[Rfam]
RNA sequence: UUAAAGAAUGUUUUAACUAUUGAACCGUUUUGUCCCUCUCGUCAAAGAACAAAUUGUUUUCUGUCAGAUAGUGACAAAAUAGUUCAAAAGCUAAAACGUCCAAUAAU
Numbered sequence: 001u002u003a004a005a006g007a008a009u010g011u012u013u014u015a016a017c018u019a020u021u022g023a024a025c026c027g028u029u030u031u032g033u034c035c036c037u038c039u040c041g042u043c044a045a046a047g048a049a050c051a052a053a054u055u056g057u058u059u060u061c062u063g064u065c066a067g068a069u070a071g072u073g074a075c076a077a078a079a080u081a082g083u084u085c086a087a088a089a090g091c092u093a094a095a096a097c098g099u100c101c102a103a104u105a106a107u
Stems, first nucleotide, its partner, number of pairs: 001106003006101001011096005017090002020087006027080002029068004034063001048058004
Dot-bracket structure: (((..(....(((((.((.((((((.((((((.(.............((((...))))....).))))..........)).)))))).)).)))))....)..))).
Shown here is a 107-nucleotide RNA sequence from Plutella xylostella, a member of the family "mir-8517 microRNA precursor family". It scores 70 bits against the family's covariance model. Gene Ontology terms of the family: miRNA-mediated post-transcriptional gene silencing and RISC complex. Taxonomically the source falls in Plutella (Eukaryota, Protostomia, Ecdysozoa, Neoptera).